[Rfam]
RNA sequence: GCAGCACGGGUGAGCGUUGACCCGCCGGGCGCACGAAAUGGUCGCCACAGCCCGGCGGAGAGCAGAGGCGAAACCGGACCCGUUCUCU
Numbered sequence: 001g002c003a004g005c006a007c008g009g010g011u012g013a014g015c016g017u018u019g020a021c022c023c024g025c026c027g028g029g030c031g032c033a034c035g036a037a038a039u040g041g042u043c044g045c046c047a048c049a050g051c052c053c054g055g056c057g058g059a060g061a062g063c064a065g066a067g068g069c070g071a072a073a074c075c076g077g078a079c080c081c082g083u084u085c086u087c088u
Base pairs, nucleotide, nucleotide: 001088003086004085006083007082008081009080010079011078014063015062022058023057024056025055026054027053028052029051040075041074042071043070044069045068046067
Rfam assigns this 88-nucleotide RNA from Modestobacter muralis to the family "c-di-GMP-II-GAG riboswitch aptamer". The match comes from Rfam's covariance-model search (46 bits). Lineage of the source: Bacteria > Bacillati > Actinomycetota > Geodermatophilales > Modestobacter. The family's consensus secondary structure is taken from published work.